[Rfam]
Nucleotides: 066
Stems, first nucleotide, its partner, number of pairs: 011048006025038002028035001052066004
Number, partner (000 for none) and nucleotide at each position: 001000a002000a003000u004000a005000a006000a007000g008000g009000a010000a011048c012047a013046a014045a015044g016043g017000c018000u019000a020000a021000g022000u023000u024000c025038g026037c027000a028035a029000c030000g031000u032000c033000a034000a035028u036000c037026g038025c039000a040000a041000c042000u043016u044015c045014u046013u047012u048011g049000u050000g051000a052066c053065c054064u055063g056000c057000a058000u059000c060000u061000u062000c063055c064054a065053g066052g